RNA sequence: GCAUGGGUUUGGAUUUAUGGCAGGCCUGUACCCCUGGGCCUCUCAUAGUGUCCCAUGCCAGAGCAAACUAUGCCCCGAACCUGGCCUGUGCCCGUAGGCUCCUGGCACUGAAGCGGGUUGCACAGUG
Numbered sequence: 001g002c003a004u005g006g007g008u009u010u011g012g013a014u015u016u017a018u019g020g021c022a023g024g025c026c027u028g029u030a031c032c033c034c035u036g037g038g039c040c041u042c043u044c045a046u047a048g049u050g051u052c053c054c055a056u057g058c059c060a061g062a063g064c065a066a067a068c069u070a071u072g073c074c075c076c077g078a079a080c081c082u083g084g085c086c087u088g089u090g091c092c093c094g095u096a097g098g099c100u101c102c103u104g105g106c107a108c109u110g111a112a113g114c115g116g117g118u119u120g121c122a123c124a125g126u127g
Stems, first nucleotide, its partner, number of pairs: 001058004005053004015048006022041003025037002071120001072118004080105002083100005

The family of this 127-nucleotide RNA sequence from Microcebus murinus is "Small nucleolar RNA SNORA42/SNORA80 family". The family's RNA type in Rfam is H/ACA-box small nucleolar RNA. The literature on the family includes a 2006 paper in RNA by Schattner et al., "A computational screen for mammalian pseudouridylation guide H/ACA RNAs". The members of this family belong to the H/ACA class of snoRNAs that guide the sites of modification of uridines to pseudouridines. Human ACA42 (SNORA42) was cloned from HeLa cells by immunoprecipitation with anti-GAR1 antibody. Its is predicted to guide the pseudouridylation of residues U109 and U572 of 18S rRNA. ACA42 shares the same host gene with ACA26, ACA46, ACA50. This family also includes mammalian snoRNA ACA67 (SNORA80) which was identified by computational screening and its expression in mouse experimentally verified by Northern blot and primer extension analysis. NCBI's taxonomy places the organism under Eukaryota, Metazoa, Tetrapoda, Mammalia, Microcebus.